[Rfam]
RNA sequence: GAAGUCGGCCAGACCGCCGCUGGUGCAAGCAUCGAAAGGUGGCACUGGAGGAAGGUCCGGACUGCAUAGAGCAGCGUAGCGGGUAAUGCCCGUCCACCGCGAGGUGCGAAUCAGAGCCACAGAGACGAGCCGGUUCAGUCCGGAGUGAAACGCGGCAAUCUUUACGCGCAGCAACACCAAAUAGGCCAGCAUUGAAGCGGCUCGCUGAGCUGGCGGGUAGGUGGCAUCGAGCAGGGGUGGCAACAUCCCAGCCCAGAGGAAUGGCGGUCACGGCCCUGGCAGCGCAAGUUGCCCGGGUCGCACAGAAUCCGGCCUAUCGGCUGACUUCACAC
Dot-bracket structure: ((((((((((((((((((.(((((((.(...........).)))))))....[[[.[[[[[((((...[[[[.((((((((((.....)))))(((((....)))).)((...(((((...................................)))..)))))))))))))...((((......((((((.....(((.]]]])))..)))))).....)))).......((.(.((((....)))).).))..........)))))))......................................]]]]]]]].).))))))))))....